[Rfam]
Plant signal recognition particle RNA: a 303-nucleotide RNA sequence from Solanum lycopersicum. The family's RNA type in Rfam is non-coding RNA gene. The family's consensus secondary structure is taken from published work. It scores 232 bits against the family's covariance model.
RNA sequence: ACCGAGCCUUGUAACGAGGGCUUGUAGCUCAAGUGGGGCAACAAUGUGGUGGAAUGUUGGGUUGUUCCUGAUGGCUGGGCUUUGGUGGGCUAAUGUCUGGUCUGCCCUAUCCAAGCACCGAGUUGAGUCAUGUGGUCCAAACGAAAGUUUGGGCUACUUGGCUCCUAGAGUGGGGCGGAAUGCGUGAGGCUGGUUUCACAGAGCAACGAACAGUCUCCGCUCCGUGCAGUGGAAGGAUAAUGGAUCAGUGCUCUCCAAGUUCAAUAAAAAACUAAUGGACAAUCUAAUUAGACCACCACUUUU
Numbered sequence: 001a002c003c004g005a006g007c008c009u010u011g012u013a014a015c016g017a018g019g020g021c022u023u024g025u026a027g028c029u030c031a032a033g034u035g036g037g038g039c040a041a042c043a044a045u046g047u048g049g050u051g052g053a054a055u056g057u058u059g060g061g062u063u064g065u066u067c068c069u070g071a072u073g074g075c076u077g078g079g080c081u082u083u084g085g086u087g088g089g090c091u092a093a094u095g096u097c098u099g100g101u102c103u104g105c106c107c108u109a110u111c112c113a114a115g116c117a118c119c120g121a122g123u124u125g126a127g128u129c130a131u132g133u134g135g136u137c138c139a140a141a142c143g144a145a146a147g148u149u150u151g152g153g154c155u156a157c158u159u160g161g162c163u164c165c166u167a168g169a170g171u172g173g174g175g176c177g178g179a180a181u182g183c184g185u186g187a188g189g190c191u192g193g194u195u196u197c198a199c200a201g202a203g204c205a206a207c208g209a210a211c212a213g214u215c216u217c218c219g220c221u222c223c224g225u226g227c228a229g230u231g232g233a234a235g236g237a238u239a240a241u242g243g244a245u246c247a248g249u250g251c252u253c254u255c256c257a258a259g260u261u262c263a264a265u266a267a268a269a270a271a272c273u274a275a276u277g278g279a280c281a282a283u284c285u286a287a288u289u290a291g292a293c294c295a296c297c298a299c300u301u302u303u
Stems, first nucleotide, its partner, number of pairs: 002038002004023007028036001030035001043302002046299007055290002057287009067278002073272001076269001077262006084255002087253003091250002097248008106236002110233004115227004120222004125164006132157011165170001172217005181210001183208003190201003